[Rfam]
RNA sequence: CAGAAGAAUCUGUUAAGCUCAGGAGGGAUAGCGCCAUAGAUGAUCUUCAUGCCUUUUGUGCGUGUGUUUGAGUGUGUUUUGAUCCUCGUUAGCGCUAUCCAUCCUGAGUUUCAUCGGUUCUUCUU
Numbered sequence: 001c002a003g004a005a006g007a008a009u010c011u012g013u014u015a016a017g018c019u020c021a022g023g024a025g026g027g028a029u030a031g032c033g034c035c036a037u038a039g040a041u042g043a044u045c046u047u048c049a050u051g052c053c054u055u056u057u058g059u060g061c062g063u064g065u066g067u068u069u070g071a072g073u074g075u076g077u078u079u080u081g082a083u084c085c086u087c088g089u090u091a092g093c094g095c096u097a098u099c100c101a102u103c104c105u106g107a108g109u110u111u112c113a114u115c116g117g118u119u120c121u122u123c124u125u
Stems, first nucleotide, its partner, number of pairs: 010116001016110009026100009
Overview
MIR390 microRNA precursor family: a 125-nucleotide RNA sequence from Hibiscus syriacus. Lineage of the source: Eukaryota > eudicotyledons > Gunneridae > Malvales > Hibiscus.